The record is a 30-nucleotide sequence from Gottschalkia purinilytica, which matches "CRISPR RNA direct repeat element" in Rfam.
[Rfam]
RNA sequence: AUUUAAAUACAUACUAUGUUACUGUUCAAC
Dot-bracket structure: ........((((...))))...........

Source information: Its family is annotated with defense response in the Gene Ontology. Lineage of the source: Bacteria > Bacillota > Tissierellia > Gottschalkiaceae > Gottschalkia. The base pairs follow the family's consensus structure, which was predicted with WAR.